This 167-nucleotide RNA from Robertmurraya siralis belongs to the Rfam family "M-box riboswitch aptamer (ykoK leader)". The organism belongs to Robertmurraya, within Bacteria.

[Rfam]
RNA sequence: AAAUACCUUCGUUAGGUGAGGCUCCUGUGCUGGAGAUAUGCUGCUGCCCAGAAAUAUCCAAAGAUGCCAAUGGGUCAACAGAAACCAUCGAAUUAAGGUGGUUUUUAAUGUAGCUGGAAUUUAUUCCUAUGCCGCACAGUGCUAAAACUCUACGAAUGAAGGAAAUC
Dot-bracket structure: .....((((((([.(((..(((..((((((.((......(((((.(((((....((((....))))....))))).....((((..(((......])))..))))....))))).(((......)))....)))))))).)))...)))..))....))))).....
For this family Rfam cites "New RNA motifs suggest an expanded scope for riboswitches in bacterial genetic control" (Barrick et al., Proc Natl Acad Sci U S A, 2004). The base pairs follow the family's consensus structure.